[Rfam]
RNA sequence: UGUAUUUGAGGAUAGAAAUGGCAGCUAUCGCCCAUUGUUAGGAGAUACAGGAUUCGUCGCCCUGUCUUAUACA
Numbered sequence: 001u002g003u004a005u006u007u008g009a010g011g012a013u014a015g016a017a018a019u020g021g022c023a024g025c026u027a028u029c030g031c032c033c034a035u036u037g038u039u040a041g042g043a044g045a046u047a048c049a050g051g052a053u054u055c056g057u058c059g060c061c062c063u064g065u066c067u068u069a070u071a072c073a
Stems, first nucleotide, its partner, number of pairs: 001073005008066001011029005019059004031042001047065005
Source information: Shown here is a 73-nucleotide RNA sequence, a member of the family "skipping-rope RNA". The family's consensus secondary structure is taken from published work.